Overview
The record is a 106-nucleotide sequence from Brassica napus, which matches "Small nucleolar RNA snoR97" in Rfam. On this family, see Marker et al., Curr Biol 2002: "Experimental RNomics: identification of 140 candidates for small non-messenger RNAs in the plant Arabidopsis thaliana". The base pairs follow the family's consensus structure, which was predicted with WAR. The family has 7 seed sequences and 862 matches in Rfam 15.1. Lineage of the source: Eukaryota > Streptophytina > eudicotyledons > Gunneridae > Brassica.

RNA sequence: UGUUCUUAUUAAUAAACUGAGUCUAACUCAGAAAUUGAUAGUGUUAACAUAAGCUUUGUGUCUGGUUUAGGCCUUGAGAUUUUAGUUAAACUAGAACACCAAAUUA
Numbered sequence: 001u002g003u004u005c006u007u008a009u010u011a012a013u014a015a016a017c018u019g020a021g022u023c024u025a026a027c028u029c030a031g032a033a034a035u036u037g038a039u040a041g042u043g044u045u046a047a048c049a050u051a052a053g054c055u056u057u058g059u060g061u062c063u064g065g066u067u068u069a070g071g072c073c074u075u076g077a078g079a080u081u082u083u084a085g086u087u088a089a090a091c092u093a094g095a096a097c098a099c100c101a102a103a104u105u106a
Stems, first nucleotide, its partner, number of pairs: 041099005052087004059079001061077002